Shown here is a 118-nucleotide RNA from Allostella humosa, a member of the family "Glycine riboswitch aptamer". NCBI's taxonomy places the organism under Bacteria, Pseudomonadota, Alphaproteobacteria, Rhodospirillales, Allostella. About the family: This family represents the bacterial glycine riboswitch. A search with the family's covariance model found it, with a score of 58 bits.
RNA sequence: AGACCCCCCGCGGGAGAGAUCGGCGGGCCGCUUCGUUCUCUGGAACGGUGCGGCCAUCGUCGGAGCCGAAGGCGCAACCGCCCCGGAAACGCUCAGGCAAACGGACCGCGAGGGGUAG
Numbered sequence: 001a002g003a004c005c006c007c008c009c010g011c012g013g014g015a016g017a018g019a020u021c022g023g024c025g026g027g028c029c030g031c032u033u034c035g036u037u038c039u040c041u042g043g044a045a046c047g048g049u050g051c052g053g054c055c056a057u058c059g060u061c062g063g064a065g066c067c068g069a070a071g072g073c074g075c076a077a078c079c080g081c082c083c084c085g086g087a088a089a090c091g092c093u094c095a096g097g098c099a100a101a102c103g104g105a106c107c108g109c110g111a112g113g114g115g116u117a118g
Stems, first nucleotide, its partner, number of pairs: 006113002009110005020063007065098003068094002072092003078086002